[Rfam]
RNA sequence: CAUCGUGCGGUCUCUAAUUCGCUUGGUGCAGGUCGGGAACCGACGCUGCUGUUACUGCCGUUUAAUGAAUGGGGCGGUGGUUGCCGGUGGCGAAUUGGUUCCCGCCUUGCAUCAACUGAAUCGGAGGCUGCCGUUGUU
Numbered sequence: 001c002a003u004c005g006u007g008c009g010g011u012c013u014c015u016a017a018u019u020c021g022c023u024u025g026g027u028g029c030a031g032g033u034c035g036g037g038a039a040c041c042g043a044c045g046c047u048g049c050u051g052u053u054a055c056u057g058c059c060g061u062u063u064a065a066u067g068a069a070u071g072g073g074g075c076g077g078u079g080g081u082u083g084c085c086g087g088u089g090g091c092g093a094a095u096u097g098g099u100u101c102c103c104g105c106c107u108u109g110c111a112u113c114a115a116c117u118g119a120a121u122c123g124g125a126g127g128c129u130g131c132c133g134u135u136g137u138u
Stems, first nucleotide, its partner, number of pairs: 013125002017121004023115010034104005040098004
Rfam assigns this 138-nucleotide RNA sequence from Lupinus albus to the family "MIR168 microRNA precursor family".
Rfam 15.1 lists 518 matches to the family in 218 species.
For this family Rfam cites "MicroRNAs in plants" (Reinhart et al., Genes Dev, 2002).
Its family is annotated with RISC complex and miRNA-mediated post-transcriptional gene silencing in the Gene Ontology.